Background
The record is an 88-nucleotide RNA from Planctomycetaceae bacterium SCGC AG-212-D15, which matches "c-di-GMP-I-GGC riboswitch aptamer" in Rfam. The base pairs follow the family's consensus structure, which is taken from published work.
RNA sequence: CCUCGAAACGGCAAACCCGUCGUGAGGCGGGGACGCAAAGCCAUGGGACCCUCGGCCGAACAGCCGGCGGUAUGCCAGGUUACCGAAG
Numbered sequence: 001c002c003u004c005g006a007a008a009c010g011g012c013a014a015a016c017c018c019g020u021c022g023u024g025a026g027g028c029g030g031g032g033a034c035g036c037a038a039a040g041c042c043a044u045g046g047g048a049c050c051c052u053c054g055g056c057c058g059a060a061c062a063g064c065c066g067g068c069g070g071u072a073u074g075c076c077a078g079g080u081u082a083c084c085g086a087a088g
Base pairs, nucleotide, nucleotide: 001088003085011036012035016031017030018029019028020027021026034074039081040080041079042078044077045076046075048071049070